[Rfam]
RNA sequence: CAGCCGGAGCGAAAUUCGCCCGGCGACUUUCGCUCCGGCCGGUAGCAACUGGAGCAGCCAUGGAGUCAACGAAGCGGCUGAAGCCUUUGGUGCAGAGGGUUCUGUAAAGGAACUUGGCGAACAUGCAGGCCGUAACGCGA
Number, nucleotide and partner (000 for none) at each position: 001c000002a000003g000004c000005c000006g000007g000008a000009g000010c000011g000012a000013a000014a000015u000016u000017c000018g000019c000020c042021c041022g040023g039024c038025g000026a000027c000028u000029u000030u000031c000032g000033c000034u000035c000036c000037g000038g024039c023040c022041g021042g020043u000044a000045g000046c000047a000048a000049c000050u089051g088052g087053a086054g085055c080056a079057g078058c077059c076060a000061u000062g000063g000064a000065g070066u000067c000068a000069a000070c065071g000072a000073a000074g000075c000076g059077g058078c057079u056080g055081a000082a000083g000084c000085c054086u053087u052088u051089g050090g000091u000092g000093c000094a000095g000096a000097g115098g114099g113100u112101u111102c110103u000104g000105u000106a000107a000108a000109g000110g102111a101112a100113c099114u098115u097116g000117g133118c132119g131120a000121a000122c000123a000124u000125g000126c000127a000128g000129g000130c000131c119132g118133u117134a000135a000136c000137g000138c000139g000140a000
RNA: Group II catalytic intron D1-D4-4
Organism: Candidatus Methylospira mobilis